Shown here is a 134-nucleotide sequence from Salmo salar, a member of the family "Small nucleolar RNA SNORA57". The organism belongs to Salmo, within Eukaryota. Rfam links the family to the GO terms nucleolus and RNA processing. The family's consensus secondary structure was predicted with PFOLD. The literature on the family includes a 2003 paper in Nucleic Acids Res by Vitali et al., "Identification of 13 novel human modification guide RNAs". It scores 63 bits against the family's covariance model.

RNA sequence: CCUCCUUUCUUGGCAUGCAUGCUGUUGCCCUGUAUAUCGUGUGUGUGUGAUGGAGAGAAACCAAGGACAGUGCUAUGUAUUCGGUGCCAGAAUGUCCCCGACUUCUGGUUCUAUGCUCAAUCGCUGGUACAUUC
Number, nucleotide and partner (000 for none) at each position: 001c000002c055003u054004c053005c052006u000007u000008u000009c000010u000011u000012g000013g000014c045015a044016u043017g042018c041019a040020u000021g038022c000023u036024g035025u034026u000027g000028c000029c000030c000031u000032g000033u000034a025035u024036a023037u000038c021039g000040u019041g018042u017043g016044u015045g014046u000047g000048u000049g000050a000051u000052g005053g004054a003055g002056a000057g000058a000059a000060a000061c000062c000063a000064a000065g000066g000067a000068c126069a125070g124071u123072g122073c000074u000075a000076u000077g000078u000079a000080u000081u000082c000083g000084g000085u000086g000087c108088c107089a106090g105091a104092a103093u000094g000095u000096c000097c000098c000099c000100g000101a000102c000103u092104u091105c090106u089107g088108g087109u000110u000111c000112u000113a000114u000115g000116c000117u000118c000119a000120a000121u000122c072123g071124c070125u069126g068127g000128u000129a000130c000131a000132u000133u000134c000